[Rfam]
RNA sequence: GAAAUUGUUUUCGGUAUAGAGCACUCAUAUCGAAAAAGGAUUUGAACCCUUU
Dot-bracket structure: ..........(((((((.........)))))))...................

This 52-nucleotide RNA from Salix brachista belongs to the Rfam family "Plastid-atpF group II-D1 intron". The base pairs follow the family's consensus structure, which was predicted with LocARNA. It scores 54 bits against the family's covariance model. On this family, see Richter et al., Plant Commun 2023: "Retrograde signaling in plants: A critical review focusing on the GUN pathway and beyond". Its family is annotated with Group II intron splicing in the Gene Ontology. Rfam's curators write: Plastid atpF is a non-coding RNA (ncRNA) recognised in plastids.